[Rfam]
This 67-nucleotide RNA from Indibacter alkaliphilus belongs to the Rfam family "Fluoride riboswitch aptamer (crcB RNA motif)". It scores 58 bits against the family's covariance model. The literature on the family includes a 2017 paper in Nat Chem Biol by Zhao et al., "An excited state underlies gene regulation of a transcriptional riboswitch".
RNA sequence: CAAACUUAAGGUGAUGGGGUUCCGCCUAAAACCGCUUUUCUUGAAAGCUGAUGACUCCUACUUCAAC
Numbered sequence: 001c002a003a004a005c006u007u008a009a010g011g012u013g014a015u016g017g018g019g020u021u022c023c024g025c026c027u028a029a030a031a032c033c034g035c036u037u038u039u040c041u042u043g044a045a046a047g048c049u050g051a052u053g054a055c056u057c058c059u060a061c062u063u064c065a066a067c
Stems, first nucleotide, its partner, number of pairs: 010026004016058006034048004